[Rfam]
Nucleotides: 159
Base pairs, nucleotide, nucleotide: 011149014145015144016143017142018141019140023136024135025134026133027132028131029130030129031128032127033126
Number, partner (000 for none) and nucleotide at each position: 001000u002000u003000a004000g005000c006000a007000g008000a009000g010000u011149u012000c013000u014145u015144u016143g017142g018141c019140a020000u021000u022000c023136u024135g025134u026133c027132c028131a029130c030129c031128u032127c033126c034000g035000a036000c037000u038000g039000a040000u041000c042000u043000c044000a045000u046000c047000u048000u049000a050000a051000a052000a053000c054000a055000c056000u057000c058000c059000c060000a061000g062000a063000g064000a065000a066000a067000u068000a069000g070000a071000a072000c073000a074000a075000a076000u077000c078000a079000g080000g081000a082000g083000g084000a085000a086000a087000g088000a089000a090000g091000a092000a093000a094000g095000a096000u097000u098000c099000u100000u101000c102000a103000u104000c105000a106000a107000g108000u109000c110000u111000c112000u113000c114000u115000u116000g117000u118000g119000a120000u121000c122000u123000c124000g125000u126033g127032g128031a129030g130029g131028u132027g133026g134025g135024c136023a137000g138000a139000c140019u141018g142017c143016c144015a145014a146000g147000u148000g149011a150000g151000c152000u153000c154000u155000g156000u157000u158000a159000g
A member of the RNA family "MIR394 microRNA precursor family" from Corymbia citriodora, 159 nucleotides long. Rfam 15.1 lists 724 matches to the family in 216 species. Lineage of the source: Eukaryota > Pentapetalae > malvids > Eucalypteae > Corymbia citriodora. Its family is annotated with miRNA-mediated post-transcriptional gene silencing and RISC complex in the Gene Ontology. The match comes from Rfam's covariance-model search (76 bits).